t44 RNA: a 108-nucleotide RNA sequence from Sulfuricaulis limicola.
Rfam classes the family as a small RNA.
RNA sequence: GUUGUUAAACCCUAAACCCACACGCGGCAUCGUCACAGGCAUCCGGGUGUCCGGUCCGUCCCCCACGGGACAGGCUGGAUUGAUGCAUGGGAUCCGCGGCGGAAAAAC
Dot-bracket structure: ......................(((((.(((....((.(((((.....((((((((................)))))))).))))).)).))))))))..........

About the family: This family consists of a number of bacterial RNA genes of between 135 and 170 bases in length. The t44 gene has been identified in several species of enteric bacteria but homologs have also been identified in Pseudomonas and Coxiella species. The t44 gene is found between the map and rpsB genes in all species in the full alignment apart from Shigella flexneri. The function of this RNA is unknown. The match comes from Rfam's covariance-model search (52 bits).